[Rfam]
RNA sequence: GCGGGAGUGGUGUAACGGCAGCCACGCCAGACUUAGGAUCUGGUGCCUUCGGGCGUGGGGGUUCGACUCCCCCCUCCCGCA
Numbered sequence: 001g002c003g004g005g006a007g008u009g010g011u012g013u014a015a016c017g018g019c020a021g022c023c024a025c026g027c028c029a030g031a032c033u034u035a036g037g038a039u040c041u042g043g044u045g046c047c048u049u050c051g052g053g054c055g056u057g058g059g060g061g062u063u064c065g066a067c068u069c070c071c072c073c074c075u076c077c078c079g080c081a
Stems, first nucleotide, its partner, number of pairs: 001080007010025003027043005057073005
A member of the RNA family "tRNA" from Blastococcus sp. DSM 46786, 81 nucleotides long.
The family's consensus secondary structure is taken from published work.
A search with the family's covariance model found it, with a score of 54 bits.
About the family: Transfer RNA (tRNA) molecules are approximately 80 nucleotides in length.